Shown here is an 88-nucleotide RNA sequence from Massilia polaris, a member of the family "c-di-GMP-I riboswitch aptamer".
Rfam 15.1 lists 5,092 matches to the family in 1,772 species.
A search with the family's covariance model found it, with a score of 71 bits.
NCBI's taxonomy places the organism under Bacteria, Pseudomonadati, Burkholderiales, Oxalobacteraceae, Massilia.
Gene Ontology term of the family: cyclic-di-GMP binding.
The family's consensus secondary structure is taken from published work.
RNA sequence: CUCUGCAAAAGGCAAACUCCUCGAAAGAGGAGGACGCAAAGUCAACGGUCUAACGGGUCCUUUCCCCUAUGACGGCAGGACUGCCAGG
Numbered sequence: 001c002u003c004u005g006c007a008a009a010a011g012g013c014a015a016a017c018u019c020c021u022c023g024a025a026a027g028a029g030g031a032g033g034a035c036g037c038a039a040a041g042u043c044a045a046c047g048g049u050c051u052a053a054c055g056g057g058u059c060c061u062u063u064c065c066c067c068u069a070u071g072a073c074g075g076c077a078g079g080a081c082u083g084c085c086a087g088g
Base pairs, nucleotide, nucleotide: 012037013036017032018031019030020029021028022027040082041081042080043079047076048073049072050071055067056066057065